Overview:
Shown here is a 114-nucleotide RNA from Treponema parvum, a member of the family "TD-1 RNA". The literature on the family includes a 2007 paper in Nucleic Acids Res by Weinberg et al., "Identification of 22 candidate structured RNAs in bacteria using the CMfinder comparative genomics pipeline". The family is grouped with related families in Rfam's "TD (Treponema denticola) motifs". The family's RNA type in Rfam is cis-regulatory element. It scores 73 bits against the family's covariance model. The family has 28 seed sequences and 147 matches in Rfam 15.1. The source organism's lineage runs through Bacteria, Pseudomonadati, Treponematales, Treponemataceae and Treponema.
[Rfam]
RNA sequence: AUUUAACUUCGAGUUUCGGACAAUGCCGAAACAUCGCUUAUCAACUGUGCGCAAAAAGCGCACGAAUUCAACAGUCUCCAAAAUUGAUAUUUUGUUCAACUGUUGAAUUUUAAU
Number, nucleotide and partner (000 for none) at each position: 001a000002u000003u000004u000005a000006a000007c000008u000009u000010c000011g035012a034013g032014u031015u030016u029017c028018g027019g026020a000021c000022a000023a000024u000025g000026c019027c018028g017029a016030a015031a014032c013033a000034u012035c011036g000037c000038u000039u000040a000041u000042c000043a000044a000045c000046u000047g063048u062049g061050c060051g059052c058053a000054a000055a000056a000057a000058g052059c051060g050061c049062a048063c047064g000065a000066a108067u107068u106069c105070a104071a103072c102073a101074g100075u099076c000077u000078c000079c094080a093081a092082a091083a090084u089085u000086g000087a000088u000089a084090u083091u082092u081093u080094g079095u000096u000097c000098a000099a075100c074101u073102g072103u071104u070105g069106a068107a067108u066109u000110u000111u000112a000113a000114u000